RNA sequence: UGCAUCUGUGAUGAGAUUUUGGCUCCCUCUUCUGAAAAAAGUGAGGAAAACUGCCAGUUACCCAAAGCCUCUGAGAUGCG
Numbered sequence: 001u002g003c004a005u006c007u008g009u010g011a012u013g014a015g016a017u018u019u020u021g022g023c024u025c026c027c028u029c030u031u032c033u034g035a036a037a038a039a040a041g042u043g044a045g046g047a048a049a050a051c052u053g054c055c056a057g058u059u060a061c062c063c064a065a066a067g068c069c070u071c072u073g074a075g076a077u078g079c080g
Stems, first nucleotide, its partner, number of pairs: 001080006